[Rfam]
RNA: Plastid-psbA-1 3UTR RNA
RNA sequence: AAAAUUUUCCAUCUACAAAUGGAUAAGACUUUUGUCUUAGUGUAUAUGAAUCGUUGAAGGAAUGAAGCAAUACCCAACUAAAGGAAGAUAUUGGGUAUUGCUCCAUU
Numbered sequence: 001a002a003a004a005u006u007u008u009c010c011a012u013c014u015a016c017a018a019a020u021g022g023a024u025a026a027g028a029c030u031u032u033u034g035u036c037u038u039a040g041u042g043u044a045u046a047u048g049a050a051u052c053g054u055u056g057a058a059g060g061a062a063u064g065a066a067g068c069a070a071u072a073c074c075c076a077a078c079u080a081a082a083g084g085a086a087g088a089u090a091u092u093g094g095g096u097a098u099u100g101c102u103c104c105a106u107u
Base pairs, nucleotide, nucleotide: 008023009022010021011020012019061107062106063105064104066102067101068100069099070098071097072096073095075093076092077091